[Rfam]
RNA sequence: UGGUAGAUGCACCCUAAUAAUUCACUCCCUCGGACGGUAACAACCAACUGAGGGAAUUUUUU
Numbered sequence: 001u002g003g004u005a006g007a008u009g010c011a012c013c014c015u016a017a018u019a020a021u022u023c024a025c026u027c028c029c030u031c032g033g034a035c036g037g038u039a040a041c042a043a044c045c046a047a048c049u050g051a052g053g054g055a056a057u058u059u060u061u062u
Stems, first nucleotide, its partner, number of pairs: 002013003027054007036045002

The family of this 62-nucleotide RNA from Dulcicalothrix desertica is "Nitrogen stress-induced RNA 1". By type it is a small RNA. On this family, see Ionescu et al., J Mol Biol 2010: "Heterocyst-specific transcription of NsiR1, a non-coding RNA encoded in a tandem array of direct repeats in cyanobacteria". NCBI's taxonomy places the organism under Bacteria, Bacillati, Cyanobacteriota, Cyanophyceae, Dulcicalothrix desertica.